[Rfam]
RNA sequence: AAUUUUUCUGGGAAUGAAGUUCUCCCGCGGCAUUGCCGAAACUGCUUAUUUAGCUGAUGACUUCUGCGCUGGC
Numbered sequence: 001a002a003u004u005u006u007u008c009u010g011g012g013a014a015u016g017a018a019g020u021u022c023u024c025c026c027g028c029g030g031c032a033u034u035g036c037c038g039a040a041a042c043u044g045c046u047u048a049u050u051u052a053g054c055u056g057a058u059g060a061c062u063u064c065u066g067c068g069c070u071g072g073c
Base pairs, nucleotide, nucleotide: 010026011025012024013023016064017063018062019061020060021059044054045053046052
About this RNA:
Fluoride riboswitch aptamer (crcB RNA motif): a 73-nucleotide RNA from Clostridium sp. MSTE9. The base pairs follow the family's consensus structure, which is taken from published work. Lineage of the source: Bacteria > Bacillota > Eubacteriales > Clostridiaceae > Clostridium. The match comes from Rfam's covariance-model search (44 bits).